A member of the RNA family "Group II catalytic intron D1-D4-6" from Clostridium homopropionicum, 235 nucleotides long. About the family: Group II introns are found in rRNA, tRNA and mRNA of organelles in fungi, plants and protists, and also in mRNA in bacteria. Lineage of the source: Bacteria > Bacillati > Eubacteriales > Clostridiaceae > Clostridium homopropionicum.
RNA sequence: AAAAUCCCAUCAGGUAAUACCUAACCAGUAGCCUGUACCUAGUUCCUUGGAGCCGAAGUGGUAACACUAGGUUUAAGCGUAGGACAGGGAGCAAACGAGCCGAAACGAAAGUGAAGCUAUAGAGCCACGAAAUUAUUAUCUAAAUGAAGAGGUCGAUGCCCUUUGAUUGGUCGCAGACAACAUUCUAUAAUUCGUUAGGGUGAGAUUUAUAGAACUCUUCCGGGGUCUGAGGGCU
Numbered sequence: 001a002a003a004a005u006c007c008c009a010u011c012a013g014g015u016a017a018u019a020c021c022u023a024a025c026c027a028g029u030a031g032c033c034u035g036u037a038c039c040u041a042g043u044u045c046c047u048u049g050g051a052g053c054c055g056a057a058g059u060g061g062u063a064a065c066a067c068u069a070g071g072u073u074u075a076a077g078c079g080u081a082g083g084a085c086a087g088g089g090a091g092c093a094a095a096c097g098a099g100c101c102g103a104a105a106c107g108a109a110a111g112u113g114a115a116g117c118u119a120u121a122g123a124g125c126c127a128c129g130a131a132a133u134u135a136u137u138a139u140c141u142a143a144a145u146g147a148a149g150a151g152g153u154c155g156a157u158g159c160c161c162u163u164u165g166a167u168u169g170g171u172c173g174c175a176g177a178c179a180a181c182a183u184u185c186u187a188u189a190a191u192u193c194g195u196u197a198g199g200g201u202g203a204g205a206u207u208u209a210u211a212g213a214a215c216u217c218u219u220c221c222g223g224g225g226u227c228u229g230a231g232g233g234c235u
Stems, first nucleotide, its partner, number of pairs: 011035004018030003022203001024201002038088003044084004048079002050074005056068001058067003122227001124226003128222002146220006152178003158171003183214008192205002